A member of the RNA family "Group II catalytic intron D1-D4-6" from Thiohalocapsa sp. PB-PSB1, 263 nucleotides long.
Lineage of the source: Bacteria > Gammaproteobacteria > Chromatiales > Chromatiaceae > Thiohalocapsa.
About the family: Group II introns are found in rRNA, tRNA and mRNA of organelles in fungi, plants and protists, and also in mRNA in bacteria.
RNA sequence: AAAGUCCCGGUUGGGUAAGGGCUAGCCACCCACCCGUAUCGAGUGUUGGUCCUGCUGCGGAGCUUUGUGCCCCGCGAACAAAUGUGCAGGGCAAGCGUACACAGAGAAUCCUGUAGGCCGUAGGGGAGACUGCGCUCCCUGAAGUGCUGGUACAGCUUCGAGAAACCUAACCCGCCGAUGACGACAGUGUUAACGUCCUGGAAGUCAACAUAAAGCACGCGCUACGAGGCAAGUGUGUAGAUGUUCGCCGGAGUCCUUACCUC
Numbered sequence: 001a002a003a004g005u006c007c008c009g010g011u012u013g014g015g016u017a018a019g020g021g022c023u024a025g026c027c028a029c030c031c032a033c034c035c036g037u038a039u040c041g042a043g044u045g046u047u048g049g050u051c052c053u054g055c056u057g058c059g060g061a062g063c064u065u066u067g068u069g070c071c072c073c074g075c076g077a078a079c080a081a082a083u084g085u086g087c088a089g090g091g092c093a094a095g096c097g098u099a100c101a102c103a104g105a106g107a108a109u110c111c112u113g114u115a116g117g118c119c120g121u122a123g124g125g126g127a128g129a130c131u132g133c134g135c136u137c138c139c140u141g142a143a144g145u146g147c148u149g150g151u152a153c154a155g156c157u158u159c160g161a162g163a164a165a166c167c168u169a170a171c172c173c174g175c176c177g178a179u180g181a182c183g184a185c186a187g188u189g190u191u192a193a194c195g196u197c198c199u200g201g202a203a204g205u206c207a208a209c210a211u212a213a214a215g216c217a218c219g220c221g222c223u224a225c226g227a228g229g230c231a232a233g234u235g236u237g238u239a240g241a242u243g244u245u246c247g248c249c250g251g252a253g254u255c256c257u258u259a260c261c262u263c
Stems, first nucleotide, its partner, number of pairs: 012036004019031003023232001025230002039105002043102004047097002049092007152257001155254006174248002177246002180206003185200003211243002215238006